[Rfam]
RNA: Bacterial large subunit ribosomal RNA, nucleotides 601 to 831
RNA sequence: GAGUUACGGUUACUGGCAAGGUUAAUGUUUAAAGAACAGGAGCCGAAGCGAAAGCGAGUCUGAAAAGGGCGAUUAGUCAGUGGCUGUAGACGCGAAACUUUGUGAUCUACCCUUGGUCAGGUUGAAGCGCUGGUAACACAUCGUGGAGGACCGAACCGGUAAACGUUGAAAAGUUUUCGGAUGAACUGAGGGUAGGGGUGAAAGGCCAAUCAAACUGAGAAAUAGCUCGUA
Dot-bracket structure: ....(((((((((((((..((((..(((.......)))..))))...((....))..((((.....)))).....)))))))))))))..((.(...(((.((...((((((((((((.((((...(((.((......)).)))....))))...(((..((((........)))).)))..).))))))))))).(((.....)))......)).)))......).))..